[Rfam]
RNA sequence: UAAGGCCUAUGAUGAUUAAAAUUUUGCCUACAUUGUUUGAUUUACCAAUGAUAACAACAACUUUUCCAAAAUUUAUUCUGAGGCCUUG
Dot-bracket structure: ((.((((..........................................................................)))).))

A member of the RNA family "Small nucleolar RNA SNORD34" from Arabis alpina, 88 nucleotides long. From the family's description: snoRNA U34 is found in intron 5 of the ribosomal protein L13a gene in humans. Rfam classes the family as a C/D-box small nucleolar RNA. It scores 54 bits against the family's covariance model. Lineage of the source: Eukaryota > Embryophyta > Spermatophyta > Brassicaceae > Arabis. Its Rfam clan is "SNORD34 clan".